Rfam assigns this 71-nucleotide RNA from Salvator merianae to the family "mir-219 microRNA precursor family". The match comes from Rfam's covariance-model search (63 bits).
[Rfam]
RNA sequence: CUGGACUGUGAUUGUCCAAACGCAAUUCUUGUCUCUAUACCUGAGAGUUGAGUCUGGACAUCACGGGCCGG
Numbered sequence: 001c002u003g004g005a006c007u008g009u010g011a012u013u014g015u016c017c018a019a020a021c022g023c024a025a026u027u028c029u030u031g032u033c034u035c036u037a038u039a040c041c042u043g044a045g046a047g048u049u050g051a052g053u054c055u056g057g058a059c060a061u062c063a064c065g066g067g068c069c070g071g
Stems, first nucleotide, its partner, number of pairs: 002070003006066002009063004014059005021052001023050009
Dot-bracket structure: .(((.((.((((.(((((..(.(((((((((..........))))))))).)..))))))))).)).))).